Ribosomal S15 leader: a 110-nucleotide RNA sequence from Arsukibacterium sp. MJ3.
The E. coli Ribosomal S15 gene 5' UTR can form two alternative structures. One that is a series of three hairpins, The other includes a pseudoknot.

RNA sequence: CGUUGGGGCUGAAUUAGUGAUCGGCUCCGGCAUCAUUAAAUUGGAGAUAUACAAUGUCACUAAGUGCAGAUGUAAAAGCUCAAAUCGUAAAAGAUUUCGCACGUGCAGAA
Numbered sequence: 001c002g003u004u005g006g007g008g009c010u011g012a013a014u015u016a017g018u019g020a021u022c023g024g025c026u027c028c029g030g031c032a033u034c035a036u037u038a039a040a041u042u043g044g045a046g047a048u049a050u051a052c053a054a055u056g057u058c059a060c061u062a063a064g065u066g067c068a069g070a071u072g073u074a075a076a077a078g079c080u081c082a083a084a085u086c087g088u089a090a091a092a093g094a095u096u097u098c099g100c101a102c103g104u105g106c107a108g109a110a
Base pairs, nucleotide, nucleotide: 007026008025009024010023011022012021041063042062043061044060046058

Clan: Ribosomal Protein S15 Leader clan. Rfam links the family to the GO term regulation of translation, ncRNA-mediated.